[Rfam]
RNA: Eukaryotic small subunit ribosomal RNA, nucleotides 618 to 1151
RNA sequence: UGGUUAAAAAGCUCGUAGUUGGAUCUCAGCCCAAGUGCAUUGGUCCAUCAUGACGAUGGUUACUGGUGUGCUGGGCACUUUACCGUUCACGUGCUAUGGUGUUCUUAACCGGGCGUCAUAGUCGUACGGUAGUUUUACUUUGAAAAAAUUAGAGUGCUCAAAGCAGGCAUCAUCGCCUGAAUACUGUUGCAUGGAAUAAUAGAAUAGGACCUUGGUUCUGUUCUGUUGGUCUUCGGAUCCGAGGUAAUGAUUAAGAGGGACGGACGGGGACAUUAGUACUGCGGCGAUAGAGGUGAAAUUCUUGGACCGCCGCAUGACUAACCAAAGCGAAAGCAUUUGUCAAGAACGUUUUCAUUAAUCAAGAACGAAAGUUAGAGGUUCGAAGGCGAUCAGAUACCGCCCUAGUUCUAACCAUAAACGAUGCCAACUAGCAAUCAGCCAGAGUUCGUUUAUGACUCGGCUGGCGGCUUCCGGGAAACCAAAGUUUUUCGGUUCCAGGGGAAGUAUGGUUGCAAAGCUGAAACUUAAAGGAAU
Number, nucleotide and partner (000 for none) at each position: 001u497002g496003g495004u000005u000006a000007a000008a000009a494010a000011g366012c000013u364014c363015g000016u000017a000018g359019u358020u357021g000022g000023a000024u000025c000026u000027c000028a000029g000030c000031c000032c000033a000034a000035g000036u000037g000038c000039a000040u000041u000042g000043g000044u000045c000046c000047a000048u000049c000050a000051u000052g000053a000054c000055g000056a000057u000058g000059g000060u000061u000062a000063c000064u000065g000066g000067u000068g000069u000070g000071c000072u000073g000074g000075g000076c000077a000078c000079u000080u000081u000082a000083c000084c000085g000086u000087u000088c000089a000090c000091g000092u000093g000094c000095u000096a000097u000098g000099g000100u000101g000102u000103u000104c000105u000106u000107a000108a000109c000110c000111g000112g000113g000114c000115g000116u000117c000118a000119u000120a000121g000122u000123c000124g000125u000126a000127c000128g000129g000130u000131a000132g000133u000134u000135u000136u000137a000138c000139u000140u000141u000142g000143a000144a000145a000146a000147a000148a000149u000150u000151a000152g000153a000154g000155u000156g000157c000158u000159c000160a000161a000162a000163g000164c000165a000166g000167g000168c000169a000170u000171c000172a000173u000174c000175g000176c000177c000178u000179g000180a000181a000182u000183a000184c000185u000186g000187u000188u000189g000190c000191a000192u000193g000194g000195a000196a000197u000198a000199a000200u000201a000202g000203a000204a000205u000206a000207g000208g000209a000210c000211c000212u000213u000214g000215g000216u000217u000218c000219u000220g000221u000222u000223c000224u000225g000226u000227u000228g000229g000230u000231c000232u000233u000234c000235g000236g000237a000238u000239c000240c000241g000242a000243g000244g000245u000246a000247a000248u000249g000250a000251u000252u000253a000254a000255g000256a000257g353258g352259g351260a350261c348262g347263g000264a000265c344266g000267g000268g000269g341270a340271c339272a338273u000274u000275a319276g318277u000278a000279c000280u314281g313282c312283g311284g310285c309286g308287a000288u000289a000290g301291a300292g299293g000294u000295g000296a000297a000298a000299u292300u291301c290302u000303u000304g000305g000306a000307c000308c286309g285310c284311c283312g282313c281314a280315u000316g000317a000318c276319u275320a000321a000322c000323c000324a000325a000326a000327g334328c333329g000330a000331a000332a000333g328334c327335a000336u000337u000338u272339g271340u270341c269342a000343a000344g265345a000346a000347c262348g261349u000350u260351u259352u258353c257354a000355u000356u000357a020358a019359u018360c000361a000362a000363g014364a013365a000366c011367g000368a000369a000370a000371g412372u411373u410374a409375g408376a407377g000378g000379u000380u000381c405382g000383a000384a000385g401386g400387c399388g398389a000390u000391c000392a000393g000394a000395u000396a000397c000398c388399g387400c386401c385402c000403u000404a000405g381406u000407u376408c375409u374410a373411a372412c371413c000414a000415u000416a000417a000418a000419c000420g000421a000422u000423g493424c492425c491426a486427a485428c484429u000430a469431g468432c467433a000434a000435u464436c463437a462438g461439c460440c459441a000442g457443a000444g456445u455446u454447c000448g000449u000450u000451u000452a000453u000454g446455a445456c444457u442458c000459g440460g439461c438462u437463g436464g435465c000466g000467g432468c431469u430470u000471c000472c000473g480474g479475g000476a000477a000478a000479c474480c473481a000482a000483a000484g428485u427486u426487u000488u000489u000490c000491g425492g424493u423494u009495c003496c002497a001498g000499g526500g525501g524502a000503a000504g000505u000506a000507u000508g519509g518510u517511u516512g000513c000514a000515a000516a511517g510518c509519u508520g000521a000522a000523a000524c501525u500526u499527a000528a000529a000530g000531g000532a000533a000534u000